[Rfam]
Shown here is a 104-nucleotide sequence from Caballeronia glathei, a member of the family "Burkholderia sRNA Bp1_Cand684_SIPHT". On this family, see Khoo et al., BMC Genomics 2012: "Computational discovery and RT-PCR validation of novel Burkholderia conserved and Burkholderia pseudomallei unique sRNAs". Pairs were carried over by alignment from the consensus structure, which was predicted with RNAalifold. By type it is a small RNA.
RNA sequence: AAGAAAGUGACUGCCGCCCCGCACAGGGGCGAAGCUAAUAGACCAAUAGCAAAUCAAGUUUCAUAGAAGCGCAAAAACAUUAAACGGUUCUACAACCGCCCAAC
Numbered sequence: 001a002a003g004a005a006a007g008u009g010a011c012u013g014c015c016g017c018c019c020c021g022c023a024c025a026g027g028g029g030c031g032a033a034g035c036u037a038a039u040a041g042a043c044c045a046a047u048a049g050c051a052a053a054u055c056a057a058g059u060u061u062c063a064u065a066g067a068a069g070c071g072c073a074a075a076a077a078c079a080u081u082a083a084a085c086g087g088u089u090c091u092a093c094a095a096c097c098g099c100c101c102a103a104c
Stems, first nucleotide, its partner, number of pairs: 011069002014066001015031006087096003